Rfam assigns this 80-nucleotide RNA sequence from Ixodes scapularis to the family "mir-1 microRNA precursor family". Pairs were carried over by alignment from the consensus structure, which was predicted with RNAalifold.

RNA sequence: UUCGGAUCACCGUGCUUCCUUACUUCCCAUAUGUGUCCCCUCAGAGCGGUAUGGAAUGUAAAGAAGUAUGGAGUUCCGGU
Numbered sequence: 001u002u003c004g005g006a007u008c009a010c011c012g013u014g015c016u017u018c019c020u021u022a023c024u025u026c027c028c029a030u031a032u033g034u035g036u037c038c039c040c041u042c043a044g045a046g047c048g049g050u051a052u053g054g055a056a057u058g059u060a061a062a063g064a065a066g067u068a069u070g071g072a073g074u075u076c077c078g079g080u
Stems, first nucleotide, its partner, number of pairs: 008073001010071009020061004025056001027054005

The sequence is in the family's curated seed alignment. About the family: This family represents the microRNA (miRNA) mir-1 family. miRNAs are transcribed as ~70nt precursors (modelled here) and subsequently processed by the Dicer enzyme to give a ~22nt product.